[Rfam]
RNA sequence: UUGUUUUUUUAGGUUUUGAUUUUUGUAAACAAGACGAGAAAAUCAAAAUCUAAAGAAAAUA
Numbered sequence: 001u002u003g004u005u006u007u008u009u010u011a012g013g014u015u016u017u018g019a020u021u022u023u024u025g026u027a028a029a030c031a032a033g034a035c036g037a038g039a040a041a042a043u044c045a046a047a048a049u050c051u052a053a054a055g056a057a058a059a060u061a
Stems, first nucleotide, its partner, number of pairs: 004058021

Shown here is a 61-nucleotide RNA sequence from Perca flavescens, a member of the family "mir-737 microRNA precursor family". The match comes from Rfam's covariance-model search (74 bits). The organism belongs to Perca, within Eukaryota.